Rfam assigns this 94-nucleotide RNA from Pelotomaculum thermopropionicum to the family "Selenocysteine transfer RNA".
RNA sequence: GGGAGUGGAUGGUGCCUGGUGGUGCUCCUGGUCUUCAAAACCAGUCGUCGGGCAGCGCUCCUGUCCGUGGUGGGUUCGAUUCCCACACACUCCC
Number, nucleotide and partner (000 for none) at each position: 001g094002g093003g092004a091005g090006u089007g088008g086009a000010u000011g026012g025013u024014g023015c022016c021017u000018g000019g000020u000021g016022g015023u014024g013025c012026u011027c047028c044029u043030g042031g041032u040033c000034u000035u000036c000037a000038a000039a000040a032041c031042c030043a029044g028045u000046c000047g027048u000049c067050g066051g065052g064053c063054a000055g000056c000057g000058c000059u000060c000061c000062u000063g053064u052065c051066c050067g049068u000069g000070g000071u085072g084073g083074g082075u000076u000077c000078g000079a000080u000081u000082c074083c073084c072085a071086c008087a000088c007089a006090c005091u004092c003093c002094c001
The base pairs follow the family's consensus structure, which is taken from published work.